[Rfam]
RNA sequence: AAGCGCCUGCGGCGGAUCCGGCACGGACGGCAAACGAGGCUUCGCAGGCAGCCCGUCCGUGUACGAUCUGGUACAUCCCGGAAAUUUCCGGGCUUUAACGUUUUCU
Numbered sequence: 001a002a003g004c005g006c007c008u009g010c011g012g013c014g015g016a017u018c019c020g021g022c023a024c025g026g027a028c029g030g031c032a033a034a035c036g037a038g039g040c041u042u043c044g045c046a047g048g049c050a051g052c053c054c055g056u057c058c059g060u061g062u063a064c065g066a067u068c069u070g071g072u073a074c075a076u077c078c079c080g081g082a083a084a085u086u087u088c089c090g091g092g093c094u095u096u097a098a099c100g101u102u103u104u105c106u
Stems, first nucleotide, its partner, number of pairs: 005049007013070003017066002021062008038053004077092006
RNA: RT-5 RNA
Organism: Phoenicibacter congonensis